[Rfam]
RNA sequence: CCUCCAUUUCUUGGCAUGCAGGGUGUUGUGCUGUACCCCUUCAUGUAAUGUGCAGAGGUAGAUUAUACCGGUGCUAUGUCUUCGGUGCCAGUUCUUGUUCUGAGCUGGUUCUAUCCUCAAUCACUGGGACAAGG
Numbered sequence: 001c002c003u004c005c006a007u008u009u010c011u012u013g014g015c016a017u018g019c020a021g022g023g024u025g026u027u028g029u030g031c032u033g034u035a036c037c038c039c040u041u042c043a044u045g046u047a048a049u050g051u052g053c054a055g056a057g058g059u060a061g062a063u064u065a066u067a068c069c070g071g072u073g074c075u076a077u078g079u080c081u082u083c084g085g086u087g088c089c090a091g092u093u094c095u096u097g098u099u100c101u102g103a104g105c106u107g108g109u110u111c112u113a114u115c116c117u118c119a120a121u122c123a124c125u126g127g128g129a130c131a132a133g134g
Base pairs, nucleotide, nucleotide: 001058002057003056004055015045016044017043018042020040022038023037025036026035069126070125071124072123073122088108089107090106091105092104093103094102
A member of the RNA family "Small nucleolar RNA SNORA57" from Hymenochirus boettgeri, 134 nucleotides long. It is annotated as an H/ACA-box small nucleolar RNA. Rfam's curators write: U99 belongs to the H/ACA class of snoRNAs which are thought to guide the sites of modification of uridines to pseudouridines, the target for this family is unknown. The literature on the family includes a 2003 paper in Nucleic Acids Res by Vitali et al., "Identification of 13 novel human modification guide RNAs". The family's consensus secondary structure was predicted with PFOLD. Gene Ontology terms of the family: nucleolus and RNA processing.